[Rfam]
Shown here is a 155-nucleotide RNA sequence from Planomicrobium sp. CPCC 101110, a member of the family "SAM riboswitch aptamer (S box leader)".
Rfam describes the family as follows. The SAM riboswitch is found upstream of a number of genes which code for proteins involved in methionine or cysteine biosynthesis in Gram-positive bacteria.
The family's consensus secondary structure is taken from published work.

RNA sequence: CUCUUAUCAAGAGCUGGCAGAGGGAUAAUGGCCCAAUGACGCCCAGCAACCGACCGUAAUACCGUUGUGAAACGGGGCGCUUCUGCGCCGGGAUGAAAAUUCCGCAAGGCACGGUGCUAAUUCCAUCAGAGGUGAAAAUCUCUGAAAGAUAAGAG
Numbered sequence: 001c002u003c004u005u006a007u008c009a010a011g012a013g014c015u016g017g018c019a020g021a022g023g024g025a026u027a028a029u030g031g032c033c034c035a036a037u038g039a040c041g042c043c044c045a046g047c048a049a050c051c052g053a054c055c056g057u058a059a060u061a062c063c064g065u066u067g068u069g070a071a072a073c074g075g076g077g078c079g080c081u082u083c084u085g086c087g088c089c090g091g092g093a094u095g096a097a098a099a100u101u102c103c104g105c106a107a108g109g110c111a112c113g114g115u116g117c118u119a120a121u122u123c124c125a126u127c128a129g130a131g132g133u134g135a136a137a138a139u140c141u142c143u144g145a146a147a148g149a150u151a152a153g154a155g
Stems, first nucleotide, its partner, number of pairs: 001155008013044001016043003022034003028126004045118004050114002052110001054108001122147001127144006
Dot-bracket structure: ((((((((....(..(((...(((...[[[[)))......))))((((.(((.(.....................................................).)..))))))...(]]]]((((((......))))))..)))))))))